[Rfam]
RNA sequence: AGCCAGUGAUGAUUUUCCUAUUUUCUGACACCUCGUAUGAACGCUGAAUGUCAGCGGUUGAUUCUACUUGCUUGUCUGAGGCUC
Dot-bracket structure: ((((......................................((((.....))))........................)))).
Shown here is an 84-nucleotide sequence from Triplophysa rosa, a member of the family "Small nucleolar RNA SNORD60". On this family, see Galardi et al., Mol Cell Biol 2002: "Purified box C/D snoRNPs are able to reproduce site-specific 2'-O-methylation of target RNA in vitro". By type it is a C/D-box small nucleolar RNA. Its family is annotated with nucleolus and RNA processing in the Gene Ontology.